[Rfam]
Group II catalytic intron D1-D4-6: a 235-nucleotide sequence from Propionispora sp. 2/2-37. For this family Rfam cites "The ins and outs of group II introns" (Bonen and Vogel, Trends Genet, 2001). The pairing is the family consensus, mapped onto this sequence. Rfam links the family to the GO term Group II intron splicing.

RNA sequence: GGAAGCCGGCACAGUAAGGUGUAGCCAGCCGCCGUUAUCCAGCCUUGGAACCAAAGCCGUGAGGCGAGGUUUAAGCGUAGGUAAGAAACCAUGCGAGCCGUAACACGAAAGUGUGAAGCUAUGGAGCCCCGUCAGAUUAUAUAAAGUGGAAGCCGAUGCCUUCACCUCGGCAGUAGGCAAUAACGUUUGGUCGACAGAGGCGAGAACAAACGGGUUCCAUCGGGGUCUUAGAGCA
Number, nucleotide and partner (000 for none) at each position: 001g000002g000003a000004a000005g000006c000007c000008g000009g000010c000011a035012c034013a000014g032015u000016a000017a000018g030019g029020u028021g000022u203023a000024g201025c200026c000027a000028g020029c019030c018031g000032c014033c000034g012035u011036u000037a000038u086039c085040c000041a000042g082043c081044c080045u079046u077047g076048g072049a071050a070051c069052c068053a000054a000055a000056g065057c064058c063059g000060u000061g000062a000063g058064g057065c056066g000067a000068g052069g051070u050071u049072u048073a000074a000075g000076c047077g046078u000079a045080g044081g043082u042083a000084a000085g039086a038087a000088a000089c000090c000091a000092u000093g000094c000095g000096a000097g000098c000099c000100g000101u000102a000103a000104c000105a000106c000107g000108a000109a000110a000111g000112u000113g000114u000115g000116a000117a000118g000119c000120u000121a000122u000123g229124g227125a000126g226127c225128c224129c223130c222131g221132u000133c000134a000135g000136a000137u000138u000139a000140u000141a000142u000143a000144a000145a000146g220147u219148g218149g217150a216151a215152g178153c177154c176155g000156a000157u172158g171159c170160c169161u000162u000163c000164a000165c000166c000167u000168c000169g160170g159171c158172a157173g000174u000175a000176g154177g153178c152179a000180a000181u000182a000183a000184c212185g211186u210187u209188u208189g207190g000191u205192c204193g000194a000195c000196a000197g000198a000199g000200g025201c024202g000203a022204g192205a191206a000207c189208a188209a187210a186211c185212g184213g000214g000215u151216u150217c149218c148219a147220u146221c131222g130223g129224g128225g127226u126227c124228u000229u123230a000231g000232a000233g000234c000235a000